Rfam assigns this 117-nucleotide sequence from Lupinus angustifolius to the family "Small nucleolar RNA Z278". Rfam links the family to the GO terms nucleolus and RNA processing. About the family: snoZ278 is a C/D box small nucleolar RNA. Its methylation guide targets have not been reported.
RNA sequence: ACCUAUGAUGUCACAAUCCAACUUGUCUGAGAUUAUAGUUAACCCAAGACCCUAUUUAUAGGGAGAACCUACUUGGUGUUGCUAUAUGUCCGUUGACAGCAAAUAUUUAACUGAGGU
Numbered sequence: 001a002c003c004u005a006u007g008a009u010g011u012c013a014c015a016a017u018c019c020a021a022c023u024u025g026u027c028u029g030a031g032a033u034u035a036u037a038g039u040u041a042a043c044c045c046a047a048g049a050c051c052c053u054a055u056u057u058a059u060a061g062g063g064a065g066a067a068c069c070u071a072c073u074u075g076g077u078g079u080u081g082c083u084a085u086a087u088g089u090c091c092g093u094u095g096a097c098a099g100c101a102a103a104u105a106u107u108u109a110a111c112u113g114a115g116g117u
Base pairs, nucleotide, nucleotide: 001117002116003115050063051062052061053060054059
By type it is a C/D-box small nucleolar RNA. The source organism's lineage runs through Eukaryota, Embryophyta, Fabales, core genistoids and Lupinus. On this family, see Chen et al., Nucleic Acids Res 2003: "The high diversity of snoRNAs in plants: identification and comparative study of 120 snoRNA genes from Oryza sativa". A search with the family's covariance model found it, with a score of 52 bits.